[Rfam]
RNA: Small Cajal body specific RNA 8
RNA sequence: UGGGAGGCAGAUACCUGGACAGGUCUAAGCAGUAAUCUGUCCACCACUAGUCCUCCCUACAGCAUCCCUGCUCUCUGAUGACCGCGGCGAAUUGAGAGAAAUCGCCACGGACAGAUACGGAGCAGACAUUU
Numbered sequence: 001u002g003g004g005a006g007g008c009a010g011a012u013a014c015c016u017g018g019a020c021a022g023g024u025c026u027a028a029g030c031a032g033u034a035a036u037c038u039g040u041c042c043a044c045c046a047c048u049a050g051u052c053c054u055c056c057c058u059a060c061a062g063c064a065u066c067c068c069u070g071c072u073c074u075c076u077g078a079u080g081a082c083c084g085c086g087g088c089g090a091a092u093u094g095a096g097a098g099a100a101a102u103c104g105c106c107a108c109g110g111a112c113a114g115a116u117a118c119g120g121a122g123c124a125g126a127c128a129u130u131u
Base pairs, nucleotide, nucleotide: 002057003056004055005054006053007052016043017042018041022037023036024035068125069124070123071122072121073120074119082110083109084108087105088104089103090102